Overview: A member of the RNA family "Trypanosomatid snoRNA TB10Cs1H1" from Trypanosoma conorhini, 71 nucleotides long. The literature on the family includes a 2005 paper in RNA by Liang et al., "A genome-wide analysis of C/D and H/ACA-like small nucleolar RNAs in Trypanosoma brucei reveals a trypanosome-specific pattern of rRNA modification". The organism belongs to Trypanosoma, within Eukaryota. Its family is annotated with RNA processing and nucleolus in the Gene Ontology. By type it is an H/ACA-box small nucleolar RNA. A search with the family's covariance model found it, with a score of 82 bits.

RNA sequence: CAUCCCUUGUAAUAGCGAGCGGACCCUCAGGGCGUCACCGCAAGCCGCUCGUCUACACCGGGGGAAAGAAG
Numbered sequence: 001c002a003u004c005c006c007u008u009g010u011a012a013u014a015g016c017g018a019g020c021g022g023a024c025c026c027u028c029a030g031g032g033c034g035u036c037a038c039c040g041c042a043a044g045c046c047g048c049u050c051g052u053c054u055a056c057a058c059c060g061g062g063g064g065a066a067a068g069a070a071g
Base pairs, nucleotide, nucleotide: 003065004064005063006062007061008060015052016051017050018049019048020047021046022045